[Rfam]
RNA: FMN riboswitch aptamer (RFN element)
Organism: Paenibacillus polymyxa
RNA sequence: AAGAUCCUUCGGGGCGGGGCGAAACUCCCCACCGGCGGUGAUGACAUGUUUGUGAAUCGCUUCUGUGAACACAGCAUGGCUUAGUCCGUGACCCGGAUGCUGAACAAUCAGCAGAAGGUGGACCUGGUGUAAUUCCGGGACCGACAGUAUAGUCUGGAUGGGAGAAGGAUACG
Numbered sequence: 001a002a003g004a005u006c007c008u009u010c011g012g013g014g015c016g017g018g019g020c021g022a023a024a025c026u027c028c029c030c031a032c033c034g035g036c037g038g039u040g041a042u043g044a045c046a047u048g049u050u051u052g053u054g055a056a057u058c059g060c061u062u063c064u065g066u067g068a069a070c071a072c073a074g075c076a077u078g079g080c081u082u083a084g085u086c087c088g089u090g091a092c093c094c095g096g097a098u099g100c101u102g103a104a105c106a107a108u109c110a111g112c113a114g115a116a117g118g119u120g121g122a123c124c125u126g127g128u129g130u131a132a133u134u135c136c137g138g139g140a141c142c143g144a145c146a147g148u149a150u151a152g153u154c155u156g157g158a159u160g161g162g163a164g165a166a167g168g169a170u171a172c173g
Base pairs, nucleotide, nucleotide: 004170005169006168007167008166009165010164017029018028019027031153032152033143034142035089036088037087038086093118094117123139124138125137126136127135145156146155147154